This 97-nucleotide sequence belongs to the Rfam family "wcaG RNA". The family's consensus secondary structure is taken from published work. By type it is a cis-regulatory element.
[Rfam]
RNA sequence: GUAGGUUUCCAAUUUCCUAAAAGAAUUGGUGGUGCGGAUGGGAUAACUCCCGCCUGGUUUCUUGCCUCCAGUCAAAGGGCAAGUGGCGAGCCGAGCA
Numbered sequence: 001g002u003a004g005g006u007u008u009c010c011a012a013u014u015u016c017c018u019a020a021a022a023g024a025a026u027u028g029g030u031g032g033u034g035c036g037g038a039u040g041g042g043a044u045a046a047c048u049c050c051c052g053c054c055u056g057g058u059u060u061c062u063u064g065c066c067u068c069c070a071g072u073c074a075a076a077g078g079g080c081a082a083g084u085g086g087c088g089a090g091c092c093g094a095g096c097a
Stems, first nucleotide, its partner, number of pairs: 009029007039052005054071004061083006